[Rfam]
RNA sequence: GACGACCGGCCGGACGAGUACGCCUUGCGGCGAGCACUCCGGCCACAAGUGGAGGCUUCGAGCUCCCACCCGACCACCCUCACGGGCGGCGGGUCACCGGUCAGACGGAUUCGUCGCCCAGGCGGCGGACACCGUCCGAGAGCGCGCCCCGCGGCAUCGCGGCGGUGUUCCGGUAGUUCGAGGAGCCCCGCAUGUGAUCGUCCGGGGCAUUUUUU
Numbered sequence: 001g002a003c004g005a006c007c008g009g010c011c012g013g014a015c016g017a018g019u020a021c022g023c024c025u026u027g028c029g030g031c032g033a034g035c036a037c038u039c040c041g042g043c044c045a046c047a048a049g050u051g052g053a054g055g056c057u058u059c060g061a062g063c064u065c066c067c068a069c070c071c072g073a074c075c076a077c078c079c080u081c082a083c084g085g086g087c088g089g090c091g092g093g094u095c096a097c098c099g100g101u102c103a104g105a106c107g108g109a110u111u112c113g114u115c116g117c118c119c120a121g122g123c124g125g126c127g128g129a130c131a132c133c134g135u136c137c138g139a140g141a142g143c144g145c146g147c148c149c150c151g152c153g154g155c156a157u158c159g160c161g162g163c164g165g166u167g168u169u170c171c172g173g174u175a176g177u178u179c180g181a182g183g184a185g186c187c188c189c190g191c192a193u194g195u196g197a198u199c200g201u202c203c204g205g206g207g208c209a210u211u212u213u214u215u
Stems, first nucleotide, its partner, number of pairs: 004102006012040002041095004046072001049069004053064002074089002077086003104136005110129006146208006152200003158196003162191004167186005

Shown here is a 215-nucleotide RNA from Streptomyces seoulensis, a member of the family "Streptomyces RNA 1601". The family's RNA type in Rfam is small RNA. Identified by deep sequencing of transcriptome at the end of exponential growth phase. Appears longer on northern blot than sequencing transcript. Streptomyces specific. On this family, see Vockenhuber et al., RNA Biol 2011: "Deep sequencing-based identification of small non-coding RNAs in Streptomyces coelicolor".